[Rfam]
RNA sequence: GCAGCACCUCGUUAGGCGAGGCUCCUGCACGAACACAGGCCACUGAUCUGACGACAUCGAGAGAUGCCCAAGGUUAGGACAGGUCUCCCCGGUUUAAGGGGUUACCCAAAGUGGCUUCCAAAUGCGAUCAGCAAUUGGAUACGUCGUGCAGUGCCAAAGCUCUUACAUGGAGGCGCUAG
Numbered sequence: 001g002c003a004g005c006a007c008c009u010c011g012u013u014a015g016g017c018g019a020g021g022c023u024c025c026u027g028c029a030c031g032a033a034c035a036c037a038g039g040c041c042a043c044u045g046a047u048c049u050g051a052c053g054a055c056a057u058c059g060a061g062a063g064a065u066g067c068c069c070a071a072g073g074u075u076a077g078g079a080c081a082g083g084u085c086u087c088c089c090c091g092g093u094u095u096a097a098g099g100g101g102u103u104a105c106c107c108a109a110a111g112u113g114g115c116u117u118c119c120a121a122a123u124g125c126g127a128u129c130a131g132c133a134a135u136u137g138g139a140u141a142c143g144u145c146g147u148g149c150a151g152u153g154c155c156a157a158a159g160c161u162c163u164u165a166c167a168u169g170g171a172g173g174c175g176c177u178a179g
Base pairs, nucleotide, nucleotide: 005175007173008172009171010170011166012165013097015161016160017159020155021154022153025151026150027149028148029147030146031145032144039115040114041113042112043111045075046074047073048072049071055066056065057064058063082106083105084104088100089099090098117139118138119137120136121135
The record is a 179-nucleotide RNA sequence from Lysinibacter cavernae, which matches "M-box riboswitch aptamer (ykoK leader)" in Rfam. It scores 141 bits against the family's covariance model. The organism belongs to Lysinibacter, within Bacteria. About the family: M-box riboswitch, also know as ykoK leader is described as a metaloregulatory RNA that sense divalent metals and function as a genetic control element of genes related to divalent metal transport in bacteria.